[Rfam]
RNA sequence: AAACAUUACAUUAAUUUCACUCAUAUAAUAGCGGGAAUAUGGCUCGCAAGUUUCUACCAACUUACCGUAAAUAAGUUGACUAUGAGAGGCAAUGUUUAGAUG
Number, nucleotide and partner (000 for none) at each position: 001a000002a000003a000004c000005a000006u000007u000008a000009c000010a000011u000012u000013a000014a000015u000016u000017u000018c088019a000020c086021u085022c084023a083024u082025a081026u000027a000028a000029u049030a000031g047032c046033g045034g044035g043036a000037a000038u000039a000040u000041g000042g000043c035044u034045c033046g032047c031048a000049a029050g000051u000052u000053u000054c000055u000056a000057c000058c078059a077060a076061c075062u074063u073064a072065c000066c000067g000068u000069a000070a000071a000072u064073a063074a062075g061076u060077u059078g058079a000080c000081u025082a024083u023084g022085a021086g020087a000088g018089g000090c000091a000092a000093u000094g000095u000096u000097u000098a000099g000100a000101u000102g000
RNA: Purine riboswitch aptamer
Organism: Ureibacillus endophyticus